[Rfam]
RNA sequence: GGGGAUACACUUAGAGUCCCCCGCGUGAGAGUGUUAAUAGUGUUGGUCUUUGGCCGGACCACGCGGUUAGUGAAUC
Dot-bracket structure: ((((((.........))))))............(((((.(((.((((((......))))))))).)))))......
The record is a 76-nucleotide RNA, which matches "L13-Bacteroidia ribosomal protein leader" in Rfam.
The literature on the family includes a 2020 paper in BMC Microbiol by Eckert and Weinberg, "Discovery of 20 novel ribosomal leader candidates in bacteria and archaea".
It is annotated as a cis-regulatory leader.
The sequence is in the family's curated seed alignment.